[Rfam]
RNA sequence: GUUUGUCUUCAAGGCGUGGUGAAAUUCCCGACCGGCGGUGACAGCCCGCAACCCAUUGUUAAUGGUUGAUCUGGUGUAAUUCCAGAGCCGACAGUACAGUCUGGUAUAAAGAAGAUUUCU
Number, nucleotide and partner (000 for none) at each position: 001g000002u000003u000004u000005g116006u115007c114008u113009u112010c111011a000012a000013g000014g000015c000016g000017u000018g028019g027020u000021g000022a000023a000024a000025u000026u000027c019028c018029c000030g000031a100032c099033c090034g089035g049036c048037g047038g046039u000040g000041a000042c000043a000044g088045c087046c038047c037048g036049c035050a000051a000052c000053c065054c064055a000056u000057u000058g000059u000060u000061a000062a000063u000064g054065g053066u000067u000068g000069a000070u086071c085072u084073g083074g082075u000076g000077u000078a000079a000080u000081u000082c074083c073084a072085g071086a070087g045088c044089c034090g033091a000092c103093a102094g101095u000096a000097c000098a000099g032100u031101c094102u093103g092104g000105u000106a000107u000108a000109a000110a000111g010112a009113a008114g007115a006116u005117u000118u000119c000120u000
Shown here is a 120-nucleotide RNA from Limosilactobacillus reuteri, a member of the family "FMN riboswitch aptamer (RFN element)". Rfam 15.1 lists 6,230 matches to the family in 5,120 species. The base pairs follow the family's consensus structure, which is taken from published work. Taxonomically the source falls in Limosilactobacillus reuteri (Bacteria, Bacilli, Lactobacillaceae, Limosilactobacillus).